[Rfam]
RNA sequence: CUAGUGAAACUGACAGCUUUCCUAGAAAGCCGAUUAACCAAUCUUCUGUAAUGCUAUUAUGAGGAUUACCCCUUGAGGUUCAUAGCAGUAGGUCGUCCUACAGUUAAUCACAUGCUUUUGCUAG
Number, nucleotide and partner (000 for none) at each position: 001c124002u123003a122004g121005u120006g119007a118008a117009a116010c000011u000012g000013a000014c000015a000016g030017c029018u028019u027020u026021c000022c000023u000024a000025g000026a020027a019028a018029g017030c016031c000032g109033a108034u107035u106036a105037a104038c103039c000040a067041a066042u065043c064044u063045u062046c061047u000048g000049u000050a000051a000052u000053g086054c085055u084056a083057u082058u000059a000060u000061g046062a045063g044064g043065a042066u041067u040068a000069c000070c000071c000072c000073u000074u000075g000076a000077g000078g000079u000080u000081c000082a057083u056084a055085g054086c053087a000088g101089u100090a099091g098092g097093u000094c000095g000096u000097c092098c091099u090100a089101c088102a000103g038104u037105u036106a035107a034108u033109c032110a000111c000112a000113u000114g000115c000116u009117u008118u007119u006120g005121c004122u003123a002124g001